[Rfam]
RNA sequence: CCGUGCUAGGCGGGGAGGUAGCGGUGCCCUGUCGCUCGCAAUCCGCUCUAGCGAGGCCGAAUCCCCACUUGAGGGGUGACGCCUUCGGGGCCAGCGCGUCGAUGGCGGCGUCGAUGGGCCGGGUCCCGCGCGAUGUCGGCCCGUGAACCAGGUCAGGUCCGGAAGGAAGCAGCCUUAAGCGGUCACCGGCAGGCGCAGCGGGAGCUCCCGGCCCGGAGCCGACAGAGGCGAACGCGCCCGGAGACCGAUCCUCGAUGGUGGGUGCACGG
Number, nucleotide and partner (000 for none) at each position: 001c269002c268003g267004u266005g265006c264007u000008a000009g058010g057011c056012g030013g029014g028015g027016a000017g025018g000019u023020a000021g000022c000023g019024g000025u017026g000027c015028c014029c013030u012031g000032u000033c000034g000035c055036u054037c053038g052039c051040a000041a000042u000043c000044c000045g000046c000047u000048c000049u000050a000051g039052c038053g037054a036055g035056g011057c010058c009059g000060a000061a000062u000063c000064c262065c261066c260067a259068c258069u257070u000071g000072a000073g253074g252075g251076g250077u000078g000079a000080c000081g245082c000083c243084u242085u241086c240087g239088g238089g237090g000091c000092c000093a000094g233095c230096g229097c228098g000099u226100c225101g000102a000103u224104g223105g000106c000107g220108g219109c218110g000111u000112c000113g000114a000115u215116g214117g213118g212119c211120c210121g209122g208123g207124u000125c202126c201127c200128g199129c198130g000131c193132g000133a000134u191135g190136u189137c188138g187139g184140c000141c182142c181143g180144u179145g000146a000147a000148c000149c000150a175151g174152g173153u172154c000155a000156g000157g000158u167159c166160c165161g000162g000163a000164a000165g160166g159167a158168a000169g000170c000171a000172g153173c152174c151175u150176u000177a000178a000179g144180c143181g142182g141183u000184c139185a000186c000187c138188g137189g136190c135191a134192g000193g131194c000195g000196c000197a000198g129199c128200g127201g126202g125203a000204g000205c000206u000207c123208c122209c121210g120211g119212c118213c117214c116215g115216g000217a000218g109219c108220c107221g000222a000223c104224a103225g100226a099227g000228g097229c096230g095231a000232a000233c094234g000235c000236g000237c089238c088239c087240g086241g085242a084243g083244a000245c081246c000247g000248a000249u000250c076251c075252u074253c073254g000255a000256u000257g069258g068259u067260g066261g065262g064263u000264g006265c005266a004267c003268g002269g001
RNA: Bacterial large signal recognition particle RNA